[Rfam]
RNA: Group II catalytic intron D1-D4-3
Nucleotides: 170
Base pairs, nucleotide, nucleotide: 001016002015003014004013005012006011028170030168031167032166036162040157041156042155043154044153045152046148047147048146049145050144062143063142064141065140066139067138073135074134075133077131078130079129080128081127082126083125085113086112087111088110091106092105093104094103
Number, partner (000 for none) and nucleotide at each position: 001016u002015c003014c004013a005012u006011c007000g008000c009000g010000a011006g012005g013004u014003g015002g016001a017000a018000u019000c020000c021000g022000g023000a024000g025000g026000a027000a028170g029000c030168u031167g032166g033000a034000g035000a036162c037000a038000a039000a040157c041156u042155c043154u044153c045152g046148a047147c048146c049145c050144g051000a052000g053000g054000u055000a056000c057000a058000c059000g060000a061000a062143u063142c064141g065140c066139a067138u068000c069000u070000g071000a072000g073135g074134c075133u076000g077131u078130c079129g080128c081127a082126g083125u084000u085113g086112g087111a088110u089000g090000a091106g092105u093104u094103g095000c096000c097000a098000a099000g100000a101000c102000a103094c104093a105092a106091c107000g108000a109000a110088g111087u112086c113085c114000g115000a116000a117000g118000u119000c120000c121000a122000a123000g124000g125083g126082c127081u128080g129079u130078g131077g132000c133075a134074g135073u136000a137000a138067a139066u140065g141064c142063g143062g144050c145049g146048g147047g148046u149000g150000c151000a152045u153044g154043a155042g156041a157040g158000g159000a160000a161000a162036g163000g164000g165000g166032c167031c168030g169000c170028u